[Rfam]
RNA sequence: AGGGCGACCGGAUCCACCCCGCGGGUCACCACCAGAUAGUCGCGCAGCACCGUGCUGUGGCGCAUCUC
Numbered sequence: 001a002g003g004g005c006g007a008c009c010g011g012a013u014c015c016a017c018c019c020c021g022c023g024g025g026u027c028a029c030c031a032c033c034a035g036a037u038a039g040u041c042g043c044g045c046a047g048c049a050c051c052g053u054g055c056u057g058u059g060g061c062g063c064a065u066c067u068c
Stems, first nucleotide, its partner, number of pairs: 004063003008059001011030001013028001016026003035056001037054002040052001042050001044048001